The record is a 175-nucleotide sequence from Microtus ochrogaster, which matches "Small Cajal body specific RNA 16" in Rfam. scaRNAs are a specific class of small nuclear RNAs which localise to the Cajal bodies and guide the modification of RNA polymerase II transcribed spliceosomal RNAs U1, U2, U4, U5 and U12. ACA47 belongs to the H/ACA box class of guide RNAs as it has the predicted hairpin-hinge-hairpin-tail structure, the conserved H/ACA-box motifs and is found associated with GAR1. ACA47 is predicted to guide the pseudouridylation of residue U5 of the U1 spliceosomal snRNA. Lineage of the source: Eukaryota > Teleostomi > Sarcopterygii > Glires > Microtus.
[Rfam]
RNA sequence: AUAGUCUAGGAAAGGCUCCUGUGUGGUUGAAUCUACCUCAUACCUGAUUUUUCAACCUUGACCUAUAAAGUAAAUUCCCGUGGGAUAAUUCCGUAGGCUUAGAAUUUGCAGUUAAAGGUAUAAUGAUCCUAACAGCAAUUGAAUGAUUGUAUGUAUGAUGCUGCUGCAAAUAGGA
Numbered sequence: 001a002u003a004g005u006c007u008a009g010g011a012a013a014g015g016c017u018c019c020u021g022u023g024u025g026g027u028u029g030a031a032u033c034u035a036c037c038u039c040a041u042a043c044c045u046g047a048u049u050u051u052u053c054a055a056c057c058u059u060g061a062c063c064u065a066u067a068a069a070g071u072a073a074a075u076u077c078c079c080g081u082g083g084g085a086u087a088a089u090u091c092c093g094u095a096g097g098c099u100u101a102g103a104a105u106u107u108g109c110a111g112u113u114a115a116a117g118g119u120a121u122a123a124u125g126a127u128c129c130u131a132a133c134a135g136c137a138a139u140u141g142a143a144u145g146a147u148u149g150u151a152u153g154u155a156u157g158a159u160g161c162u163g164c165u166g167c168a169a170a171u172a173g174g175a
Stems, first nucleotide, its partner, number of pairs: 004062003008058003014052002019046001021044001023043002025037003029033001077097002080094005105170008116156001121151001122148002126144002131140002